[Rfam]
About this RNA
A member of the RNA family "manA_II ncRNA motif" from Leptotrichia trevisanii, 148 nucleotides long. Pairs were carried over by alignment from the consensus structure, which is taken from published work. manA_II ncRNA motif was reported as a strong cis regulatory motif candidate, with potential to be a strong riboswitch candidate, it being reported in Leptotrichia species, upstream of manA gene, which codes for mannose-6-phosphate isomerase and pflA gene, which codes for a glycil-radical enzyme activating protein. Gene Ontology term of the family: regulation of gene expression.

RNA sequence: UAUGAUUGGGGGUGAUGUCCAAAUGGAACGGGAUAUAGUUUUAUAUUAGUUCAACUUGUGGUUAUUUACUACAUCCUAAGUAGAAGAUAACACCCCAAAAUGAAAAAAUAAUUUUUUCCCUGCAAUUAUUAUUUAUUGCAGGUUUUUU
Numbered sequence: 001u002a003u004g005a006u007u008g009g010g011g012g013u014g015a016u017g018u019c020c021a022a023a024u025g026g027a028a029c030g031g032g033a034u035a036u037a038g039u040u041u042u043a044u045a046u047u048a049g050u051u052c053a054a055c056u057u058g059u060g061g062u063u064a065u066u067u068a069c070u071a072c073a074u075c076c077u078a079a080g081u082a083g084a085a086g087a088u089a090a091c092a093c094c095c096c097a098a099a100a101u102g103a104a105a106a107a108a109u110a111a112u113u114u115u116u117u118c119c120c121u122g123c124a125a126u127u128a129u130u131a132u133u134u135a136u137u138g139c140a141g142g143u144u145u146u147u148u
Stems, first nucleotide, its partner, number of pairs: 009096005026052004032047006061091007069083004102117005119142007
NCBI's taxonomy places the organism under Bacteria, Fusobacteriia, Fusobacteriales, Leptotrichiaceae, Leptotrichia.